[Rfam]
The family of this 112-nucleotide RNA from Anaerotignum lactatifermentans is "FMN riboswitch aptamer (RFN element)". The base pairs follow the family's consensus structure, which is taken from published work. The organism belongs to Anaerotignum lactatifermentans, within Bacteria. The match comes from Rfam's covariance-model search (86 bits). Rfam's curators write: The RFN element is a highly conserved domain that is found frequently in the 5'-untranslated regions of prokaryotic mRNAs that encode for flavin mononucleotide (FMN) biosynthesis and transport proteins.
RNA sequence: CACAUUCUUCGGAAACGAGUGCAUCUCUACCGGCGGUAACAGCCCGCGAGCCGAAAGGCUGAUUCGUUGAAAUUACGAAGCCGACAGACAGUCUGGAUGGGAGAAGAAAUAC
Numbered sequence: 001c002a003c004a005u006u007c008u009u010c011g012g013a014a015a016c017g018a019g020u021g022c023a024u025c026u027c028u029a030c031c032g033g034c035g036g037u038a039a040c041a042g043c044c045c046g047c048g049a050g051c052c053g054a055a056a057g058g059c060u061g062a063u064u065c066g067u068u069g070a071a072a073u074u075a076c077g078a079a080g081c082c083g084a085c086a087g088a089c090a091g092u093c094u095g096g097a098u099g100g101g102a103g104a105a106g107a108a109a110u111a112c
Stems, first nucleotide, its partner, number of pairs: 005108006017027003029092002031083002033047004042081002050059003063079005085095003